[Rfam]
Notes: This 115-nucleotide RNA from Maylandia zebra belongs to the Rfam family "Potassium channel RNA editing signal". The organism belongs to Maylandia zebra complex, within Eukaryota. The family's consensus secondary structure is taken from published work. Rfam describes the family as follows. This family represents a group of sequences related to the human potassium channel Kv1.1 hairpin element which directs the efficient modification of an adenosine to inosine by an adenosine deaminase acting on RNA (ADAR). The ADAR modification causes an isoleucine/valine recoding event which lies in the ion-conducting pore of the potassium channel. It is thought that this editing event targets the process of fast inactivation and allows a more rapid recovery from inactivation at negative potentials.

RNA sequence: CUGCAGAUAUGGAGACAUGGUUCCAAACACCAUCGCAGGGAAGAUCUUUGGAUCGAUCUGCUCUCUGAGCGGCGUCCUGGUGAUCGCCCUUCCUGUACCUGUCAUCGUGUCCAAC
Numbered sequence: 001c002u003g004c005a006g007a008u009a010u011g012g013a014g015a016c017a018u019g020g021u022u023c024c025a026a027a028c029a030c031c032a033u034c035g036c037a038g039g040g041a042a043g044a045u046c047u048u049u050g051g052a053u054c055g056a057u058c059u060g061c062u063c064u065c066u067g068a069g070c071g072g073c074g075u076c077c078u079g080g081u082g083a084u085c086g087c088c089c090u091u092c093c094u095g096u097a098c099c100u101g102u103c104a105u106c107g108u109g110u111c112c113a114a115c
Stems, first nucleotide, its partner, number of pairs: 002114001006111001008109005014103004019098001022095001038078004050064003